A member of the RNA family "Y RNA" from Aotus nancymaae, 107 nucleotides long. NCBI's taxonomy places the organism under Eukaryota, Bilateria, Sarcopterygii, Boreoeutheria, Aotus. The base pairs follow the family's consensus structure, which is taken from published work. Rfam describes the family as follows. Y RNAs are components of the Ro ribonucleoprotein particle (Ro RNP), in association with Ro60 and La proteins. The Y RNAs and Ro60 and La proteins are well conserved, but the function of the Ro RNP is not known. In humans the RNA component can be one of four small RNAs -- hY1, hY3, hY4 and hY5. The match comes from Rfam's covariance-model search (46 bits).
RNA sequence: GGAUGGUCUGAAGGUAAUGAGUUUACCCAACGGAUUGUUCACAGUCAGUUACAGAUUGAACUUGUUCUACUCUUUUCCCCCUUCUCACUACCGCACUUGACUGGAAA
Numbered sequence: 001g002g003a004u005g006g007u008c009u010g011a012a013g014g015u016a017a018u019g020a021g022u023u024u025a026c027c028c029a030a031c032g033g034a035u036u037g038u039u040c041a042c043a044g045u046c047a048g049u050u051a052c053a054g055a056u057u058g059a060a061c062u063u064g065u066u067c068u069a070c071u072c073u074u075u076u077c078c079c080c081c082u083u084c085u086c087a088c089u090a091c092c093g094c095a096c097u098u099g100a101c102u103g104g105a106a107a
Base pairs, nucleotide, nucleotide: 004103005102006101007100008099010098011097014094015093016089018087019086020085021084044071047068048067